Source information
Rfam assigns this 165-nucleotide RNA sequence to the family "Hepatitis C virus (HCV) cis-acting replication element (CRE)".
RNA sequence: CCAAUACCAGCAGCAGCCAGGUUGGAUUUAUCCGACUGGUUUACUGUUGGCUACAGCGGGGGAGGCGUAUAUCACAGCACGCCUCGUGCCCGGUCCCGCUGGUUCAUGGUUUGCCUACUCCUACUUUCAGUAGGGGUAGGCAUCUACCUCCUUCCCAACCGAUGA
Numbered sequence: 001c002c003a004a005u006a007c008c009a010g011c012a013g014c015a016g017c018c019a020g021g022u023u024g025g026a027u028u029u030a031u032c033c034g035a036c037u038g039g040u041u042u043a044c045u046g047u048u049g050g051c052u053a054c055a056g057c058g059g060g061g062g063a064g065g066c067g068u069a070u071a072u073c074a075c076a077g078c079a080c081g082c083c084u085c086g087u088g089c090c091c092g093g094u095c096c097c098g099c100u101g102g103u104u105c106a107u108g109g110u111u112u113g114c115c116u117a118c119u120c121c122u123a124c125u126u127u128c129a130g131u132a133g134g135g136g137u138a139g140g141c142a143u144c145u146a147c148c149u150c151c152u153u154c155c156c157a158a159c160c161g162a163u164g165a
Stems, first nucleotide, its partner, number of pairs: 007050007016041001018039001020037007055100007062085006112142013
For this family Rfam cites "The Role of the RNA-RNA Interactome in the Hepatitis C Virus Life Cycle" (Romero-Lopez and Berzal-Herranz, Int J Mol Sci, 2020).